[Rfam]
The record is a 72-nucleotide RNA sequence from Medicago truncatula, which matches "MIR2629 microRNA precursor family" in Rfam. Lineage of the source: Eukaryota > Streptophyta > Euphyllophyta > Magnoliopsida > Medicago. Its family is annotated with RISC complex and miRNA-mediated post-transcriptional gene silencing in the Gene Ontology.

RNA sequence: UGCCGAGGAAAACCUCGGCAGUUAACUGCAGCCGGUUUUUGAAUUCUUCGACAGUUAACUGCCGAGGAGGCA
Numbered sequence: 001u002g003c004c005g006a007g008g009a010a011a012a013c014c015u016c017g018g019c020a021g022u023u024a025a026c027u028g029c030a031g032c033c034g035g036u037u038u039u040u041g042a043a044u045u046c047u048u049c050g051a052c053a054g055u056u057a058a059c060u061g062c063c064g065a066g067g068a069g070g071c072a
Stems, first nucleotide, its partner, number of pairs: 013067001015065014